About this RNA: Shown here is a 74-nucleotide sequence from Hymenobacter daecheongensis, a member of the family "Fluoride riboswitch aptamer (crcB RNA motif)". NCBI's taxonomy places the organism under Bacteria, Pseudomonadati, Cytophagia, Hymenobacter, Hymenobacter daecheongensis. Gene Ontology terms of the family: response to fluoride and positive regulation of gene expression. The family's consensus secondary structure is taken from published work.
RNA sequence: CCUGCUUACGGUGAUGGAUUUCCACCGCGAACCGCCGGUGCCCCGCGCCCCGCGCUGAUGAUUCCUACGCAACG
Numbered sequence: 001c002c003u004g005c006u007u008a009c010g011g012u013g014a015u016g017g018a019u020u021u022c023c024a025c026c027g028c029g030a031a032c033c034g035c036c037g038g039u040g041c042c043c044c045g046c047g048c049c050c051c052g053c054g055c056u057g058a059u060g061a062u063u064c065c066u067a068c069g070c071a072a073c074g
Stems, first nucleotide, its partner, number of pairs: 010026004016065003020061002034055002